[Rfam]
RNA sequence: GAACUCGAUAGAGGCGCGGAUGAGAAGAGGUGCGGGCGAGCGAGCGAGCUUCGACCCCGUGCCGAGGCGAUUCCGCCGAACCUCGGGGCCCGGGCGCGGGCUGCGGGGUGGGUCCGUGGGGAACACCCACGGAACUGUCUGCACGUUGCAGGGGUGCUAUCCGGGUU
Numbered sequence: 001g002a003a004c005u006c007g008a009u010a011g012a013g014g015c016g017c018g019g020a021u022g023a024g025a026a027g028a029g030g031u032g033c034g035g036g037c038g039a040g041c042g043a044g045c046g047a048g049c050u051u052c053g054a055c056c057c058c059g060u061g062c063c064g065a066g067g068c069g070a071u072u073c074c075g076c077c078g079a080a081c082c083u084c085g086g087g088g089c090c091c092g093g094g095c096g097c098g099g100g101c102u103g104c105g106g107g108g109u110g111g112g113u114c115c116g117u118g119g120g121g122a123a124c125a126c127c128c129a130c131g132g133a134a135c136u137g138u139c140u141g142c143a144c145g146u147u148g149c150a151g152g153g154g155u156g157c158u159a160u161c162c163g164g165g166u167u
Stems, first nucleotide, its partner, number of pairs: 007161005016076005024068001030062007080109006087102005110136002113133008138152006
The record is a 167-nucleotide RNA sequence from Collinsella sp. AK_207A, which matches "Lysine riboswitch aptamer" in Rfam. Gene Ontology term of the family: lysine biosynthetic process. About the family: Riboswitches are metabolite binding domains within certain messenger RNAs that serve as precision sensors for their corresponding targets. Allosteric rearrangement of mRNA structure is mediated by ligand binding, and this results in modulation of gene expression. This family includes riboswitches that sense lysine in a number of genes involved in lysine metabolism, including lysC. NCBI's taxonomy places the organism under Bacteria, Bacillati, Coriobacteriales, Coriobacteriaceae, Collinsella.